RNA: MIR7502 microRNA precursor family
RNA sequence: UGUUAAAAAUUUCAUUCAUUUGUACUAUUAAAAACUGACGUGGUUGACAGAAUAAUCAACAAGUGGCACAUGGUGUGUUAUGUGUAUCUCAUGCUGGCGUAUAAGGAUCAAUUUUUACCAGCAGAAAUGGAUGGAAUUAUUAACA
Numbered sequence: 001u002g003u004u005a006a007a008a009a010u011u012u013c014a015u016u017c018a019u020u021u022g023u024a025c026u027a028u029u030a031a032a033a034a035c036u037g038a039c040g041u042g043g044u045u046g047a048c049a050g051a052a053u054a055a056u057c058a059a060c061a062a063g064u065g066g067c068a069c070a071u072g073g074u075g076u077g078u079u080a081u082g083u084g085u086a087u088c089u090c091a092u093g094c095u096g097g098c099g100u101a102u103a104a105g106g107a108u109c110a111a112u113u114u115u116u117a118c119c120a121g122c123a124g125a126a127a128u129g130g131a132u133g134g135a136a137u138u139a140u141u142a143a144c145a
Stems, first nucleotide, its partner, number of pairs: 002144005008138009018128004023123001025121002029117005